[Rfam]
RNA sequence: GGUCACCUGGCAGUGUAGUUAGCUGAUUACAAAAAUAAGAGUAAUCACUAGCCUCACAGCCAGGUGAAC
Numbered sequence: 001g002g003u004c005a006c007c008u009g010g011c012a013g014u015g016u017a018g019u020u021a022g023c024u025g026a027u028u029a030c031a032a033a034a035a036u037a038a039g040a041g042u043a044a045u046c047a048c049u050a051g052c053c054u055c056a057c058a059g060c061c062a063g064g065u066g067a068a069c
Base pairs, nucleotide, nucleotide: 003067004066005065006064009061010060013057014056015055018052019051020050021049022048024047025046026045027044028043029042030041

Shown here is a 69-nucleotide RNA sequence from Clupea harengus, a member of the family "mir-34 microRNA precursor family". About the family: Human mir-34a was discovered computationally and later experimentally verified. The mature sequence is excised from the 5' arm of the hairpin. A reference for the family is Lim et al. (2003), "Vertebrate microRNA genes", Science.